[Rfam]
Notes
Shown here is a 99-nucleotide RNA sequence from Podarcis lilfordi, a member of the family "Vault RNA". Rfam's curators write: This family of RNAs are found as part of the enigmatic vault ribonucleoprotein complex. NCBI's taxonomy places the organism under Eukaryota, Vertebrata, Tetrapoda, Amniota, Podarcis. By type it is a non-coding RNA gene.
RNA sequence: GAGCCAGCUUAGCCCAGCGGUACAACUGACCAACGCAUUGCUUGGAUCCCCCAAUUGCUUCCAGCAGUUUGAGACCCACAGGCGCUGCCUGGCUUUUUU
Numbered sequence: 001g002a003g004c005c006a007g008c009u010u011a012g013c014c015c016a017g018c019g020g021u022a023c024a025a026c027u028g029a030c031c032a033a034c035g036c037a038u039u040g041c042u043u044g045g046a047u048c049c050c051c052c053a054a055u056u057g058c059u060u061c062c063a064g065c066a067g068u069u070u071g072a073g074a075c076c077c078a079c080a081g082g083c084g085c086u087g088c089c090u091g092g093c094u095u096u097u098u099u
Base pairs, nucleotide, nucleotide: 002094003093004092005091006090007089012083013082014081017079019077020076021073023071024070025069
Dot-bracket structure: .((((((....(((..(.(((.(((...........................................))).)..)).).))).....)))))).....